[Rfam]
RNA sequence: AGUUCGACCGGAUCGACCGCCCGGGUGACCACCAGGUAGUCGCGCAGAGCGAUACCGUGGCGGUUCUC
Numbered sequence: 001a002g003u004u005c006g007a008c009c010g011g012a013u014c015g016a017c018c019g020c021c022c023g024g025g026u027g028a029c030c031a032c033c034a035g036g037u038a039g040u041c042g043c044g045c046a047g048a049g050c051g052a053u054a055c056c057g058u059g060g061c062g063g064u065u066c067u068c
Base pairs, nucleotide, nucleotide: 004063005062006061008059011030013028016026017025018024035056036055037054038053040052041051042050043049
Dot-bracket structure: ...(((.(..(.(..(((.....))).).)....((((.((((.....))))))))..).))).....

Shown here is a 68-nucleotide RNA sequence from Mycolicibacterium rhodesiae, a member of the family "ASdes TB sRNA". The family's consensus secondary structure is taken from published work. It scores 81 bits against the family's covariance model. The literature on the family includes a 2009 paper in Mol Microbiol by Arnvig and Young, "Identification of small RNAs in Mycobacterium tuberculosis".